Shown here is a 70-nucleotide RNA sequence from Candidatus Erwinia dacicola, a member of the family "osmY RNA". By type it is a small RNA. NCBI's taxonomy places the organism under Bacteria, Pseudomonadati, Pseudomonadota, Erwiniaceae, Erwinia.
[Rfam]
RNA sequence: ACAGCCACGCCGUUUGUGGCUGAAAAGCUCACCGUUGUGAGUGGUACUAAUCAAAAGGAACGAAUCGAUG
Numbered sequence: 001a002c003a004g005c006c007a008c009g010c011c012g013u014u015u016g017u018g019g020c021u022g023a024a025a026a027g028c029u030c031a032c033c034g035u036u037g038u039g040a041g042u043g044g045u046a047c048u049a050a051u052c053a054a055a056a057g058g059a060a061c062g063a064a065u066c067g068a069u070g
Base pairs, nucleotide, nucleotide: 002022003021004020005019006018007017008016009015027042028041029040030039031038